[Rfam]
Rfam assigns this 275-nucleotide RNA from Asbolus verrucosus to the family "Nuclear RNase P". Pairs were carried over by alignment from the consensus structure, which is taken from published work.
RNA sequence: UUUGUGAUAAUCUCGCAUUUGGGGCCUACGUCCAAUGUACUUGUUACACAACUGGCCCCGGGAAGGUCUGAGAUACGCCAUCAAUGUCCAAGCAGGGCAUCUGCAUUUAGCAGGGCAAGAACACCAGAAACAAGCGAGUUAAGUUUUUUAGCCAAGGAUUGACUAUAGCAUAGGCGGUGGAACUUUCUCGUUGGGAUUUCUUGUGGCUGGCAAUUUUAGUUUAAUUUGCGGGCUAGUGUUACACUAGAACUCAAUUCAGACUAAUCUGUUACAAA
Dot-bracket structure: ((((..(((..((((((...(((((..........((((.....))))......)))))........[[[[[....(((.....(((((.....)))))(((((.....)))))(((((((.............(((..................................................))).......))))))))))...................))))))((((((...)))))).......]]]]].......)))..))))
Source information: The match comes from Rfam's covariance-model search (137 bits). The source organism's lineage runs through Eukaryota, Dicondylia, Coleoptera, Tenebrionidae and Asbolus.